[Rfam]
RNA sequence: GGAGUUGGCUAGAUCGUCGCCGCUUUAUUGCUAUUUAUAGUUUAUAGAGGGGAGGAAAGUCCGGGCUUCAUAGGGCAGGGUGCCAGGUAACGCCUGGGUAGCGCAAGCUAACGACAAGUGCAGCAGAGAGAAGACCGCCUGCAAAUUUAUUUGUCGGUAAGGGUGAAAGGGUGCGGUAAGAGCGCACCGGCUAAUGGGUGAUCAUUAGUGCAGGGUAAACUCCACCUGAAGCAAAACCAAAUAGGCUUCCUGAGGUAUGGCCCAUACUGGAAGCGGGUAGGUUGCUUGAGCCGUCGAGUGAUUGGCGGCCUAGAGGAAUGACGAUCCACGACAGAACCCGGCUUAUCGGCCGACUCCAACC
Number, nucleotide and partner (000 for none) at each position: 001g357002g356003a355004g354005u353006u352007g351008g350009c349010u348011a346012g326013a325014u324015c323016g322017u321018c320019g000020c052021c051022g000023c049024u048025u047026u046027a045028u044029u000030g000031c000032u000033a000034u000035u000036u000037a000038u000039a000040g000041u000042u000043u000044a028045u027046a026047g025048a024049g023050g000051g021052g020053a000054g000055g000056a000057a344058a343059g342060u000061c341062c340063g339064g338065g337066c231067u230068u229069c228070a000071u000072a000073g263074g262075g261076c260077a000078g227079g226080g225081u224082g223083c097084c096085a095086g094087g093088u000089a000090a000091c000092g000093c087094c086095u085096g084097g083098g112099u110100a109101g108102c107103g000104c000105a000106a000107g102108c101109u100110a099111a000112c098113g222114a221115c000116a000117a000118g220119u219120g216121c215122a000123g000124c000125a000126g000127a000128g000129a000130g000131a000132a000133g000134a000135c162136c161137g158138c157139c156140u000141g154142c153143a152144a151145a150146u000147u000148u000149a000150u145151u144152u143153g142154u141155c000156g139157g138158u137159a000160a000161g136162g135163g000164u000165g000166a000167a000168a000169g000170g188171g187172u186173g185174c184175g183176g000177u000178a000179a000180g000181a000182g000183c175184g174185c173186a172187c171188c170189g211190g209191c208192u207193a206194a205195u204196g203197g202198g000199u000200g000201a000202u197203c196204a195205u194206u193207a192208g191209u190210g000211c189212a000213g000214g000215g121216u120217a000218a000219a119220c118221u114222c113223c082224a081225c080226c079227u078228g069229a068230a067231g066232c000233a000234a000235a283236a282237c281238c280239a000240a000241a000242u000243a000244g000245g274246c273247u272248u271249c270250c269251u000252g000253a000254g268255g267256u266257a265258u264259g000260g076261c075262c074263c073264a258265u257266a256267c255268u254269g250270g249271a248272a247273g246274c245275g000276g000277g000278u000279a000280g238281g237282u236283u235284g000285c000286u000287u000288g000289a000290g309291c308292c307293g306294u305295c304296g303297a302298g000299u000300g000301a000302u297303u296304g295305g294306c293307g292308g291309c290310c000311u000312a000313g000314a000315g000316g000317a000318a000319u000320g018321a017322c016323g015324a014325u013326c012327c000328a000329c000330g000331a000332c000333a000334g000335a000336a000337c065338c064339c063340g062341g061342c059343u058344u057345a000346u011347c000348g010349g009350c008351c007352g006353a005354c004355u003356c002357c001358a000359a000360c000361c000
RNA: Bacterial RNase P class A
Organism: Psychromonas sp. CNPT3